[Rfam]
RNA: Metazoan signal recognition particle RNA
RNA sequence: GCCGGGAGCGGUGGCGCACUCCUGUAACUCCUGCGACUGGAAGGGCAACUGUACGGUGGAUGGGCUGUGUCUGGGGGUGUCGGCCCCGGCAGGCCUGUGUCGAUCUGGGUGUCUGCGCUAAGCUCUGCGUCGAUAUGGGGGGCCGGGGGUAGCCCUGGCUCUCCAGGUCGUCUAAUGAGGGGUGUAUAGGCCCAGGCCGGCGACGGAGCAGUCAAAAGUCCCCGCGUGGAGUAGUGGUGAGAUCGCGCCCGUGAGUAGGCCUACCGGUGUCCGCCCAGUUCGCGGUCCAGACCCGUACUUUU
Numbered sequence: 001g002c003c004g005g006g007a008g009c010g011g012u013g014g015c016g017c018a019c020u021c022c023u024g025u026a027a028c029u030c031c032u033g034c035g036a037c038u039g040g041a042a043g044g045g046c047a048a049c050u051g052u053a054c055g056g057u058g059g060a061u062g063g064g065c066u067g068u069g070u071c072u073g074g075g076g077g078u079g080u081c082g083g084c085c086c087c088g089g090c091a092g093g094c095c096u097g098u099g100u101c102g103a104u105c106u107g108g109g110u111g112u113c114u115g116c117g118c119u120a121a122g123c124u125c126u127g128c129g130u131c132g133a134u135a136u137g138g139g140g141g142g143c144c145g146g147g148g149g150u151a152g153c154c155c156u157g158g159c160u161c162u163c164c165a166g167g168u169c170g171u172c173u174a175a176u177g178a179g180g181g182g183u184g185u186a187u188a189g190g191c192c193c194a195g196g197c198c199g200g201c202g203a204c205g206g207a208g209c210a211g212u213c214a215a216a217a218g219u220c221c222c223c224g225c226g227u228g229g230a231g232u233a234g235u236g237g238u239g240a241g242a243u244c245g246c247g248c249c250c251g252u253g254a255g256u257a258g259g260c261c262u263a264c265c266g267g268u269g270u271c272c273g274c275c276c277a278g279u280u281c282g283c284g285g286u287c288c289a290g291a292c293c294c295g296u297a298c299u300u301u302u
Stems, first nucleotide, its partner, number of pairs: 001046003004023005010017001028043002030040001051298006061289006069280001071278005080273001082271003086267002089264001091262008100253001105251001107250006113241002116239005122232009131170004136165013171177001179222005190213001192211001197206003
Dot-bracket structure: ((((((((.(......).)))))....(((.........).)))))....((((((....((((((..(.(((((....(.(((.((.(.((((((((.(....(.((((((((.(((((.(((((((((((((.(((((((((((((....))))))))))))).))))(.....).(((((......(.(....(((....)))....).)....))))).)))))))))..)))))))...))))))).).)))))))).).)).))).)))))).)...))))))...))))))....